[Rfam]
RNA: Bacterial RNase P class A
RNA sequence: UCCGCUCUCCGGAUGGCCGCGGCAGUGCUUCGGCGCUGGCGAGGAAAGUCCGGACUCCAUAGGGUAGCGUGCCUUGUGAAAACGAGGGACGGUUUCGCGUAAGCGGAACUGGACGGAAAGUGCCGCAGAAAAUAUACCGCCCGGCUUGCUGGGUAAGGGUGAAAUGGUGGGGUAAGAGCCCACCGCGCCGAGGGUAACCGAAGUGGCAGGGCAAACCCCACGUGGUGCAAGACAGAACAGGGGAAAGGGCGACCCGUCCGUUGAUCCCCGGGUAUUAGUCGCAUAGAGAAAUGGUCAUCGAAGCUGGCAAAGGGCCGGUGGAACAGAAUCCGGCUUACAGGAGAGCGGCCGAC
Numbered sequence: 001u002c003c004g005c006u007c008u009c010c011g012g013a014u015g016g017c018c019g020c021g022g023c024a025g026u027g028c029u030u031c032g033g034c035g036c037u038g039g040c041g042a043g044g045a046a047a048g049u050c051c052g053g054a055c056u057c058c059a060u061a062g063g064g065u066a067g068c069g070u071g072c073c074u075u076g077u078g079a080a081a082a083c084g085a086g087g088g089a090c091g092g093u094u095u096c097g098c099g100u101a102a103g104c105g106g107a108a109c110u111g112g113a114c115g116g117a118a119a120g121u122g123c124c125g126c127a128g129a130a131a132a133u134a135u136a137c138c139g140c141c142c143g144g145c146u147u148g149c150u151g152g153g154u155a156a157g158g159g160u161g162a163a164a165u166g167g168u169g170g171g172g173u174a175a176g177a178g179c180c181c182a183c184c185g186c187g188c189c190g191a192g193g194g195u196a197a198c199c200g201a202a203g204u205g206g207c208a209g210g211g212c213a214a215a216c217c218c219c220a221c222g223u224g225g226u227g228c229a230a231g232a233c234a235g236a237a238c239a240g241g242g243g244a245a246a247g248g249g250c251g252a253c254c255c256g257u258c259c260g261u262u263g264a265u266c267c268c269c270g271g272g273u274a275u276u277a278g279u280c281g282c283a284u285a286g287a288g289a290a291a292u293g294g295u296c297a298u299c300g301a302a303g304c305u306g307g308c309a310a311a312g313g314g315c316c317g318g319u320g321g322a323a324c325a326g327a328a329u330c331c332g333g334c335u336u337a338c339a340g341g342a343g344a345g346c347g348g349c350c351g352a353c
Base pairs, nucleotide, nucleotide: 002348003347004346005345006344007343008342009341010340011338012299013298014297015296016295017294018293020041021040023038024037025036026035027034028033046336047335048334050333051332052331053330054329055227057225058224062255063254064253065252067223068222069221070220071219072087073086074085075084076083088114090111091110092109093108094107095106096105097104098103115218116217120216121215122212123211124210137158138157139154140153141152142151143150144149166184167183168182169181170180171179185207186205187204188203192199193198231280232279233278234275241269242268243267245265247259248258249257250256